[Rfam]
RNA sequence: GGAGGUUAACUUAGGACCUCCGCGUACAGUUCGUGUUAAUAGUCACAUCUUUGGCCAGGUGUGACGGUUAGUGAAUC
Numbered sequence: 001g002g003a004g005g006u007u008a009a010c011u012u013a014g015g016a017c018c019u020c021c022g023c024g025u026a027c028a029g030u031u032c033g034u035g036u037u038a039a040u041a042g043u044c045a046c047a048u049c050u051u052u053g054g055c056c057a058g059g060u061g062u063g064a065c066g067g068u069u070a071g072u073g074a075a076u077c
Base pairs, nucleotide, nucleotide: 001021002020003019004018005017006016036071037070038069039068040067042065043064044063045062046061047060048059049058050057

Shown here is a 77-nucleotide sequence, a member of the family "L13-Bacteroidia ribosomal protein leader". The sequence is in the family's curated seed alignment. On this family, see Eckert and Weinberg, BMC Microbiol 2020: "Discovery of 20 novel ribosomal leader candidates in bacteria and archaea".